Shown here is an 87-nucleotide sequence from Neogobius melanostomus, a member of the family "mir-22 microRNA precursor family".
The family has 48 seed sequences and 884 matches in Rfam 15.1.
The match comes from Rfam's covariance-model search (73 bits).
Taxonomically the source falls in Neogobius (Eukaryota, Bilateria, Actinopteri, Neopterygii).

RNA sequence: GGCGGACACACAGCGGUUCUUCACUGGCGAGCUUUAUGUUGGAGUUCACAUGCUAAAGCUGCCAGCUGAAGAACGGCUCUGGUCUGC
Numbered sequence: 001g002g003c004g005g006a007c008a009c010a011c012a013g014c015g016g017u018u019c020u021u022c023a024c025u026g027g028c029g030a031g032c033u034u035u036a037u038g039u040u041g042g043a044g045u046u047c048a049c050a051u052g053c054u055a056a057a058g059c060u061g062c063c064a065g066c067u068g069a070a071g072a073a074c075g076g077c078u079c080u081g082g083u084c085u086g087c
Stems, first nucleotide, its partner, number of pairs: 005084003010080001012078001017073006026063003030060007